Description
This 76-nucleotide RNA from Gemmatimonas sp. belongs to the Rfam family "Fluoride riboswitch aptamer (crcB RNA motif)". A search with the family's covariance model found it, with a score of 45 bits. Taxonomically the source falls in Gemmatimonas (Bacteria, Pseudomonadati, Gemmatimonadota, Gemmatimonadia). The base pairs follow the family's consensus structure, which is taken from published work. Gene Ontology terms of the family: response to fluoride and positive regulation of gene expression.

RNA sequence: UGCAGCACGGGCGAUGGAGUUCGCCCUGAACCGCACCGGAAUCUAUUUUCCGGCUGCUGAUGACUCCUCCCACACG
Number, nucleotide and partner (000 for none) at each position: 001u000002g000003c000004a000005g000006c000007a000008c000009g000010g025011g024012c023013g022014a000015u000016g067017g066018a065019g064020u063021u062022c013023g012024c011025c010026c000027u000028g000029a000030a000031c000032c000033g057034c056035a055036c000037c000038g000039g000040a000041a000042u000043c000044u000045a000046u000047u000048u000049u000050c000051c000052g000053g000054c000055u035056g034057c033058u000059g000060a000061u000062g021063a020064c019065u018066c017067c016068u000069c000070c000071c000072a000073c000074a000075c000076g000